[Rfam]
RNA sequence: AGGACACACCGCGGGAGCGCACGACCAGUGCGCUGAGAGGACGGCUCGGGGCCGUCGACCGUACGAACCUGACCGGGUAAUGCCGGCGUAGGGAGAUGACAGGAUGACCAC
Numbered sequence: 001a002g003g004a005c006a007c008a009c010c011g012c013g014g015g016a017g018c019g020c021a022c023g024a025c026c027a028g029u030g031c032g033c034u035g036a037g038a039g040g041a042c043g044g045c046u047c048g049g050g051g052c053c054g055u056c057g058a059c060c061g062u063a064c065g066a067a068c069c070u071g072a073c074c075g076g077g078u079a080a081u082g083c084c085g086g087c088g089u090a091g092g093g094a095g096a097u098g099a100c101a102g103g104a105u106g107a108c109c110a111c
Stems, first nucleotide, its partner, number of pairs: 007098002010095001011062004017033005040056007068092004073086004
RNA: TPP riboswitch aptamer (THI element)